[Rfam]
RNA sequence: CCAGCCGGCCGGACGGCCGCUCCGGCAAGUGCCGAAAGGCCGCCGGGGAGGAAAGUCCGGGCUCCACGGAAACACGGUGCCGGGUAACACCCGGCGGGGGUGACCCCAGGGAUAGUGCCACAGAAAGCAAACCGCCGGCGCGUGCGCCGGUAAGGGUGAAAGGGUGGGGUAAGAGCCCACCGCGGACCCGGCAACGGGGACGGCAUGGUAAACCCCACCGGGAGCAAGACCGAAUAGGGGCGGCGCGAGGGCAACCUCGGCCUGUUUCCGGGCUAUGCCGCCCGGGUUGGUCGCGCGAGGCGUCCGGUAACGGGCGUCCCAGAGGAAUGGCCGUCACGCGGGCGGGUUCGCCCGUCCGCCUUACAGAACCCGGCUUACAGGCCGGCUGGCGCA
Numbered sequence: 001c002c003a004g005c006c007g008g009c010c011g012g013a014c015g016g017c018c019g020c021u022c023c024g025g026c027a028a029g030u031g032c033c034g035a036a037a038g039g040c041c042g043c044c045g046g047g048g049a050g051g052a053a054a055g056u057c058c059g060g061g062c063u064c065c066a067c068g069g070a071a072a073c074a075c076g077g078u079g080c081c082g083g084g085u086a087a088c089a090c091c092c093g094g095c096g097g098g099g100g101u102g103a104c105c106c107c108a109g110g111g112a113u114a115g116u117g118c119c120a121c122a123g124a125a126a127g128c129a130a131a132c133c134g135c136c137g138g139c140g141c142g143u144g145c146g147c148c149g150g151u152a153a154g155g156g157u158g159a160a161a162g163g164g165u166g167g168g169g170u171a172a173g174a175g176c177c178c179a180c181c182g183c184g185g186a187c188c189c190g191g192c193a194a195c196g197g198g199g200a201c202g203g204c205a206u207g208g209u210a211a212a213c214c215c216c217a218c219c220g221g222g223a224g225c226a227a228g229a230c231c232g233a234a235u236a237g238g239g240g241c242g243g244c245g246c247g248a249g250g251g252c253a254a255c256c257u258c259g260g261c262c263u264g265u266u267u268c269c270g271g272g273c274u275a276u277g278c279c280g281c282c283c284g285g286g287u288u289g290g291u292c293g294c295g296c297g298a299g300g301c302g303u304c305c306g307g308u309a310a311c312g313g314g315c316g317u318c319c320c321a322g323a324g325g326a327a328u329g330g331c332c333g334u335c336a337c338g339c340g341g342g343c344g345g346g347u348u349c350g351c352c353c354g355u356c357c358g359c360c361u362u363a364c365a366g367a368a369c370c371c372g373g374c375u376u377a378c379a380g381g382c383c384g385g386c387u388g389g390c391g392c393a
Stems, first nucleotide, its partner, number of pairs: 001389010011378001012335007020048007053376003057373005062224004071267002075220005080094005095109001096107004110215002115213002117209003132155002134151007163181006182204001183202002187198004228292004238283006259274005299318008